A member of the RNA family "Lysine riboswitch aptamer" from Salipaludibacillus agaradhaerens, 181 nucleotides long.
RNA sequence: GAAUGGGGUAGAGGCGCGAAAUUUAUGAGUAAUGGUCAGGAGCUAGGACAGCUAUGAGGGAUCAUGAAAGGAAAUUUUGCCGAAGCAUUUUAUUUCGUCCAAAAUAAAGGAGCUGGGGUUGCAUUGAAUAAGUGCAACACUGUCACUUUCGGGAAGACCGGAGUGGAGGACUACUUUUUAC
Dot-bracket structure: .....((((((....(((((((((.......((((((......................))))))......)))))))))...(((.(((((((........)))))))..)))((.((((((((.....)))))))).)).(((((((..........)))))))....)))))).....
The match comes from Rfam's covariance-model search (117 bits). Riboswitches are metabolite binding domains within certain messenger RNAs that serve as precision sensors for their corresponding targets.